[Rfam]
RNA: mir-4867 microRNA precursor family
RNA sequence: CAGGUGCAGGUAUAUAGGCUGGUUGCGUGCCUGAACACACCCGGCGAGCCACGGCUUAGUGGGUUCUUUAUAU
Numbered sequence: 001c002a003g004g005u006g007c008a009g010g011u012a013u014a015u016a017g018g019c020u021g022g023u024u025g026c027g028u029g030c031c032u033g034a035a036c037a038c039a040c041c042c043g044g045c046g047a048g049c050c051a052c053g054g055c056u057u058a059g060u061g062g063g064u065u066c067u068u069u070a071u072a073u
Stems, first nucleotide, its partner, number of pairs: 006066001008064001011061003015058007025049002028046004033040001